A member of the RNA family "Bacterial RNase P class A" from Marivirga tractuosa, 413 nucleotides long.
[Rfam]
RNA sequence: AUUGCAAGCUGUCUUAUCGCUCUCCGAUUUAUCGGAGGGAGGAAAGUCCGAGCAACAUAGAGCACCGUACCUUGAGAAACCAAGGGUCUUGAUGUUAAAAUCAGGAACAGAUAGUGCCACAGAAAAUAGGUAGCCAUGACAUUUGGCUUGUCUAAAUCGUUAUGGUCAUAGUGAAAAGGUGGGGUAAGAGCCCACCGUCUCGUAUAGUAAUAUUCGAGUGCACGGUAAACCUUUCGGGUUGUAAGGUCACAUACAUUUUUGCUUUCUUGGCUAUUUAUAGCUGAGGAAUAAGGGCUGCUCGUCCGAAAAUCCCGAGUAUUCGGGGUAGUAAAAAGGGGUAGACUGCGUUAGAUAAAUGAUAAGAGUCCGUCUUUUGACGGAAACAGAACUCGGCUUAUAGGCUUGCAUUUUUU
Numbered sequence: 001a002u003u004g005c006a007a008g009c010u011g012u013c014u015u016a017u018c019g020c021u022c023u024c025c026g027a028u029u030u031a032u033c034g035g036a037g038g039g040a041g042g043a044a045a046g047u048c049c050g051a052g053c054a055a056c057a058u059a060g061a062g063c064a065c066c067g068u069a070c071c072u073u074g075a076g077a078a079a080c081c082a083a084g085g086g087u088c089u090u091g092a093u094g095u096u097a098a099a100a101u102c103a104g105g106a107a108c109a110g111a112u113a114g115u116g117c118c119a120c121a122g123a124a125a126a127u128a129g130g131u132a133g134c135c136a137u138g139a140c141a142u143u144u145g146g147c148u149u150g151u152c153u154a155a156a157u158c159g160u161u162a163u164g165g166u167c168a169u170a171g172u173g174a175a176a177a178g179g180u181g182g183g184g185u186a187a188g189a190g191c192c193c194a195c196c197g198u199c200u201c202g203u204a205u206a207g208u209a210a211u212a213u214u215c216g217a218g219u220g221c222a223c224g225g226u227a228a229a230c231c232u233u234u235c236g237g238g239u240u241g242u243a244a245g246g247u248c249a250c251a252u253a254c255a256u257u258u259u260u261g262c263u264u265u266c267u268u269g270g271c272u273a274u275u276u277a278u279a280g281c282u283g284a285g286g287a288a289u290a291a292g293g294g295c296u297g298c299u300c301g302u303c304c305g306a307a308a309a310u311c312c313c314g315a316g317u318a319u320u321c322g323g324g325g326u327a328g329u330a331a332a333a334a335g336g337g338g339u340a341g342a343c344u345g346c347g348u349u350a351g352a353u354a355a356a357u358g359a360u361a362a363g364a365g366u367c368c369g370u371c372u373u374u375u376g377a378c379g380g381a382a383a384c385a386g387a388a389c390u391c392g393g394c395u396u397a398u399a400g401g402c403u404u405g406c407a408u409u410u411u412u413u
Stems, first nucleotide, its partner, number of pairs: 001409001003407008011398001012364007020039008044396003048393005053241004065237003069233001070085005086108001087106007109232002114230002116226003131170002133166008178196006197221001199218004204213003245344004256334005310325006